Shown here is a 94-nucleotide RNA sequence from Phycisphaerae bacterium RAS2, a member of the family "Selenocysteine transfer RNA".
NCBI's taxonomy places the organism under Bacteria, Pseudomonadati, Planctomycetota, Phycisphaerae.
[Rfam]
RNA sequence: GGGAGCGUCCGGGUGCCUGGUGGCCCUCGCGGUCUUCAAAGCCGUUGCGGCGCUGCAUCGCAGUGCCGGGUGGGUUCGAUUCCCAUCCGCUCCC
Numbered sequence: 001g002g003g004a005g006c007g008u009c010c011g012g013g014u015g016c017c018u019g020g021u022g023g024c025c026c027u028c029g030c031g032g033u034c035u036u037c038a039a040a041g042c043c044g045u046u047g048c049g050g051c052g053c054u055g056c057a058u059c060g061c062a063g064u065g066c067c068g069g070g071u072g073g074g075u076u077c078g079a080u081u082c083c084c085a086u087c088c089g090c091u092c093c094c
Base pairs, nucleotide, nucleotide: 001094002093003092004091005090006089007088012027013026015024016023017022029045030044031043032042033041048068049067050066051065052064071085072084073083074082